[Rfam]
RNA sequence: UGAUCCUUCUUAAGCCGAGGAUCACCUAGCCAACUGACGUUGUUAGUGAAUAUUAUCUUUGUUCACAAAUUAUAUGAGCCAAUCGCCUUAUUUGCGAUUGGCUAUUUUUUU
Numbered sequence: 001u002g003a004u005c006c007u008u009c010u011u012a013a014g015c016c017g018a019g020g021a022u023c024a025c026c027u028a029g030c031c032a033a034c035u036g037a038c039g040u041u042g043u044u045a046g047u048g049a050a051u052a053u054u055a056u057c058u059u060u061g062u063u064c065a066c067a068a069a070u071u072a073u074a075u076g077a078g079c080c081a082a083u084c085g086c087c088u089u090a091u092u093u094g095c096g097a098u099u100g101g102c103u104a105u106u107u108u109u110u111u
Base pairs, nucleotide, nucleotide: 001024002023003022004021005020006019040077041076042075043074046066047065048064049063050062051061052060079101080100081099082098083097084096085095086094

Shown here is a 111-nucleotide RNA from Vibrio sp. 10N.286.49.B3, a member of the family "Qrr RNA".
A reference for the family is Lenz et al. (2004), "The Small RNA Chaperone Hfq and Multiple Small RNAs Control Quorum Sensing in Vibrio harveyi and Vibrio cholerae", Cell.
Rfam classes the family as a small RNA.
The organism belongs to Vibrio, within Bacteria.
Gene Ontology term of the family: quorum sensing.
This family represents a set of small RNAs (the Qrr RNAs) that are thought to be involved in the regulation of quorum sensing in Vibrio species. It is believed that these RNAs, guided by a protein, Hfq, can mediate the destabilisation of the quorum-sensing master regulators LuxR/HapR mRNAs.